[Rfam]
RNA sequence: GGAUUUAUAAUGAGCUGUGUUUACUGAGCAUUAUGAAGUAAAGUUCAAUAUGAUUACUCUGAAGUCU
Number, nucleotide and partner (000 for none) at each position: 001g067002g066003a065004u064005u063006u000007a000008u000009a000010a000011u000012g059013a058014g057015c000016u000017g000018u000019g000020u053021u052022u000023a000024c000025u047026g046027a045028g044029c043030a000031u000032u000033a000034u000035g000036a000037a000038g000039u000040a000041a000042a000043g029044u028045u027046c026047a025048a000049u000050a000051u000052g021053a020054u000055u000056a000057c014058u013059c012060u000061g000062a000063a005064g004065u003066c002067u001

A member of the RNA family "Small Nucleolar RNA SNORD64", 67 nucleotides long. The family is grouped with related families in Rfam's "SNORD74 clan". Rfam links the family to the GO terms RNA processing and nucleolus. Rfam describes the family as follows. The human snoRNA HBII-13 belongs to the C/D family of snoRNAs. It is expressed mainly in the brain, but is also in the lungs, the kidneys and muscle. Rfam's curators put it in the seed alignment. The literature on the family includes a 2001 paper in Hum Mol Genet by Runte et al., "The IC-SNURF-SNRPN transcript serves as a host for multiple small nucleolar RNA species and as an antisense RNA for UBE3A". It is annotated as a C/D-box small nucleolar RNA.